This 183-nucleotide RNA sequence from Alteribacter lacisalsi belongs to the Rfam family "Lysine riboswitch aptamer".

[Rfam]
RNA sequence: GUGACUGAUAGAGGAGCGGACGUGAAGAGUACAGCAGAGGAGGGGAUUGAGCCCCUUUGAUUCUGCUCGAAAGGAACGCCCGCCGAAGUAAAGAAACAGCUCAAUCGUUUUUUUACUGGAUCUGUGUUUAAGAAAUACAGAGCUGUCAUACAACGAUUUGUUGUGUGGAGAACUAUCUCACCG
Numbered sequence: 001g002u003g004a005c006u007g008a009u010a011g012a013g014g015a016g017c018g019g020a021c022g023u024g025a026a027g028a029g030u031a032c033a034g035c036a037g038a039g040g041a042g043g044g045g046a047u048u049g050a051g052c053c054c055c056u057u058u059g060a061u062u063c064u065g066c067u068c069g070a071a072a073g074g075a076a077c078g079c080c081c082g083c084c085g086a087a088g089u090a091a092a093g094a095a096a097c098a099g100c101u102c103a104a105u106c107g108u109u110u111u112u113u114u115a116c117u118g119g120a121u122c123u124g125u126g127u128u129u130a131a132g133a134a135a136u137a138c139a140g141a142g143c144u145g146u147c148a149u150a151c152a153a154c155g156a157u158u159u160g161u162u163g164u165g166u167g168g169a170g171a172a173c174u175a176u177c178u179c180a181c182c183g
Stems, first nucleotide, its partner, number of pairs: 007177005016083004021078003033067007087117011118144002121141008146168007